[Rfam]
RNA sequence: GCUGGCGUAGCUCAGUUGGCAGAGCAGCUGAUUUGUAAUCAGCAGGUCGUCGGUUCGAAUCCGUCCGCCAGCU
Number, nucleotide and partner (000 for none) at each position: 001g072002c071003u070004g069005g068006c067007g066008u000009a000010g025011c024012u023013c022014a000015g000016u000017u000018g000019g000020c000021a000022g013023a012024g011025c010026a000027g043028c042029u041030g040031a039032u000033u000034u000035g000036u000037a000038a000039u031040c030041a029042g028043c027044a000045g000046g000047u000048c000049g065050u000051c063052g062053g061054u000055u000056c000057g000058a000059a000060u000061c053062c052063g051064u000065c049066c007067g006068c005069c004070a003071g002072c001073u000
This 73-nucleotide sequence from Thiohalocapsa sp. PB-PSB1 belongs to the Rfam family "tRNA". It scores 71 bits against the family's covariance model. The family's RNA type in Rfam is transfer RNA.